[Rfam]
The family of this 106-nucleotide RNA sequence from Oryza sativa is "Plastid-psbA-1 3UTR RNA". Lineage of the source: Eukaryota > Viridiplantae > Petrosaviidae > Oryzeae > Oryza sativa. Its Rfam clan is "Plastid-psbA 3UTR RNA clan". A search with the family's covariance model found it, with a score of 63 bits. Rfam describes the family as follows. Plastid psbA-1 is a non-coding RNA (ncRNA) present in plastids.
RNA sequence: UUGAAGUUCCAUCUCUUAAUGGAUAAGGCUUUUCUGCUAACAUAUAGCAAUUUUUGAAGAAAGGAAAGCUAGAAAUACCCAAUAUCUUGCUGGGUAUUUUUUAUUU
Number, nucleotide and partner (000 for none) at each position: 001u000002u000003g000004a000005a000006g000007u000008u023009c022010c021011a020012u019013c000014u000015c000016u000017u000018a000019a012020u011021g010022g009023a008024u000025a000026a000027g000028g000029c000030u000031u000032u000033u000034c000035u000036g000037c000038u000039a000040a000041c000042a000043u000044a000045u000046a000047g000048c000049a000050a000051u000052u000053u000054u000055u000056g000057a000058a000059g000060a000061a000062a000063g000064g000065a000066a106067a105068g104069c000070u000071a101072g100073a099074a098075a097076u096077a095078c094079c000080c092081a091082a000083u000084a088085u000086c000087u000088u084089g000090c000091u081092g080093g000094g078095u077096a076097u075098u074099u073100u072101u071102u000103a000104u068105u067106u066